Bacterial RNase P class A: a 422-nucleotide RNA from a Dehalococcoidia bacterium. Pairs were carried over by alignment from the consensus structure, which is taken from published work. NCBI's taxonomy places the organism under Bacteria, Bacillati, Chloroflexota, Dehalococcoidia. It scores 289 bits against the family's covariance model.

RNA sequence: UUAGCAGGACGGACGGCCGCCUUUCCGACACGUCGGAGGGGAGGAAAGUCCGAGCUCCAGCGGGCAGGGUGCUGGGUAACACCCAGGCGUGGCGACGCGAUGGAAAGUGCCACAGAAACUAAACCGCUGGUAUUGAGAUGGGGGACACCCCCAAACCCCCGCUAAAGGGGCGCAAGGGGGCCUCUAACCCAAUCCCAGCAAGGGUGAAAAGGUGCGGUAAGAGCGCACCGGCGGGCGGGUGACCGUCCGGCCGGGCAAACCCCACCCGGAGCAAGACCAUGUAGGAGGACAAUGAGCGCCCGGCUCGUCCUCGGGUUGGUCGCACGAGGCGUCGAGUAAUCGGCGUCCCAGAUGGAUGGCCGUCGGUCCCUCCCAGCAAUGGGAUGGAUGCACAGAACUCGGCUUACAGUCUUGCUGGCUAG
Numbered sequence: 001u002u003a004g005c006a007g008g009a010c011g012g013a014c015g016g017c018c019g020c021c022u023u024u025c026c027g028a029c030a031c032g033u034c035g036g037a038g039g040g041g042a043g044g045a046a047a048g049u050c051c052g053a054g055c056u057c058c059a060g061c062g063g064g065c066a067g068g069g070u071g072c073u074g075g076g077u078a079a080c081a082c083c084c085a086g087g088c089g090u091g092g093c094g095a096c097g098c099g100a101u102g103g104a105a106a107g108u109g110c111c112a113c114a115g116a117a118a119c120u121a122a123a124c125c126g127c128u129g130g131u132a133u134u135g136a137g138a139u140g141g142g143g144g145a146c147a148c149c150c151c152c153a154a155a156c157c158c159c160c161g162c163u164a165a166a167g168g169g170g171c172g173c174a175a176g177g178g179g180g181c182c183u184c185u186a187a188c189c190c191a192a193u194c195c196c197a198g199c200a201a202g203g204g205u206g207a208a209a210a211g212g213u214g215c216g217g218u219a220a221g222a223g224c225g226c227a228c229c230g231g232c233g234g235g236c237g238g239g240u241g242a243c244c245g246u247c248c249g250g251c252c253g254g255g256c257a258a259a260c261c262c263c264a265c266c267c268g269g270a271g272c273a274a275g276a277c278c279a280u281g282u283a284g285g286a287g288g289a290c291a292a293u294g295a296g297c298g299c300c301c302g303g304c305u306c307g308u309c310c311u312c313g314g315g316u317u318g319g320u321c322g323c324a325c326g327a328g329g330c331g332u333c334g335a336g337u338a339a340u341c342g343g344c345g346u347c348c349c350a351g352a353u354g355g356a357u358g359g360c361c362g363u364c365g366g367u368c369c370c371u372c373c374c375a376g377c378a379a380u381g382g383g384a385u386g387g388a389u390g391c392a393c394a395g396a397a398c399u400c401g402g403c404u405u406a407c408a409g410u411c412u413u414g415c416u417g418g419c420u421a422g
Stems, first nucleotide, its partner, number of pairs: 001418010011407001012364007020041009046405003050402005055271004063301002067267005072086005087101001088099004102262002107260002109256003124203002126199005132193003211229006231251001232249007275321004285312006294306004328347008